[Rfam]
RNA: Plant signal recognition particle RNA
RNA sequence: GCCGUGAUUAGUAACGCAAGCUUGUAACCCAAGUGGUGGCAUUGAAGUGUUGGAACAUUGGUUCAGAGUUAGUUGUUCGGGUCUGGAGUGGCUUUAUUCCGGCACGCCCAUUCCAAGCUAGGAGUUGAGUUGUGUGGCCUGAGCAAAGGCUCUGGGCUAUACAAUUUCUAGAGCAGAGGGAACCGUGACAACCUCCUGCUCUUAGUAGUGGAAGGAUAACGGGUCGGUGCCAUCCAGUUCCAUCAUGGAUAGCUGGGCUGCCUAAAUUGAACCAAUGCUUUU
Numbered sequence: 001g002c003c004g005u006g007a008u009u010a011g012u013a014a015c016g017c018a019a020g021c022u023u024g025u026a027a028c029c030c031a032a033g034u035g036g037u038g039g040c041a042u043u044g045a046a047g048u049g050u051u052g053g054a055a056c057a058u059u060g061g062u063u064c065a066g067a068g069u070u071a072g073u074u075g076u077u078c079g080g081g082u083c084u085g086g087a088g089u090g091g092c093u094u095u096a097u098u099c100c101g102g103c104a105c106g107c108c109c110a111u112u113c114c115a116a117g118c119u120a121g122g123a124g125u126u127g128a129g130u131u132g133u134g135u136g137g138c139c140u141g142a143g144c145a146a147a148g149g150c151u152c153u154g155g156g157c158u159a160u161a162c163a164a165u166u167u168c169u170a171g172a173g174c175a176g177a178g179g180g181a182a183c184c185g186u187g188a189c190a191a192c193c194u195c196c197u198g199c200u201c202u203u204a205g206u207a208g209u210g211g212a213a214g215g216a217u218a219a220c221g222g223g224u225c226g227g228u229g230c231c232a233u234c235c236a237g238u239u240c241c242a243u244c245a246u247g248g249a250u251a252g253c254u255g256g257g258c259u260g261c262c263u264a265a266a267u268u269g270a271a272c273c274a275a276u277g278c279u280u281u282u
Stems, first nucleotide, its partner, number of pairs: 001040003004023001006021001008019002029036002044281010056269002058266002064260003069256010079241003083237005089232003093229001099227005105221002108215002111213005117206009127167015142151003168173001176195004